[Rfam]
RNA sequence: UGCAGUCAAGUCAAAUUCAGUGCCCGUUUCUGUCAUAGCGGGGGCUGGCCCAGAUGGCUGCCACAGCAAGCUCCACAGCUCAUGGGCCCUGGGUCACCUACCCUGGGACCUGGGGAUAAGUUUGGCUGUGGACAGUG
Dot-bracket structure: .((((............((((.((((((........)))))).))))..........)))).............((((((......(((.((.................)).)))........))))))........
Numbered sequence: 001u002g003c004a005g006u007c008a009a010g011u012c013a014a015a016u017u018c019a020g021u022g023c024c025c026g027u028u029u030c031u032g033u034c035a036u037a038g039c040g041g042g043g044g045c046u047g048g049c050c051c052a053g054a055u056g057g058c059u060g061c062c063a064c065a066g067c068a069a070g071c072u073c074c075a076c077a078g079c080u081c082a083u084g085g086g087c088c089c090u091g092g093g094u095c096a097c098c099u100a101c102c103c104u105g106g107g108a109c110c111u112g113g114g115g116a117u118a119a120g121u122u123u124g125g126c127u128g129u130g131g132a133c134a135g136u137g
Stems, first nucleotide, its partner, number of pairs: 002061004018047004023042006075129006087115003091111002